[Rfam]
RNA sequence: GGCCUACCUCUUUGGGGUGAUUGAUGGCGGAGCUCCAUGAUCAAUCACCCCAAAGAGGGAGGCC
Numbered sequence: 001g002g003c004c005u006a007c008c009u010c011u012u013u014g015g016g017g018u019g020a021u022u023g024a025u026g027g028c029g030g031a032g033c034u035c036c037a038u039g040a041u042c043a044a045u046c047a048c049c050c051c052a053a054a055g056a057g058g059g060a061g062g063c064c
Stems, first nucleotide, its partner, number of pairs: 001064005007058019027038001029036002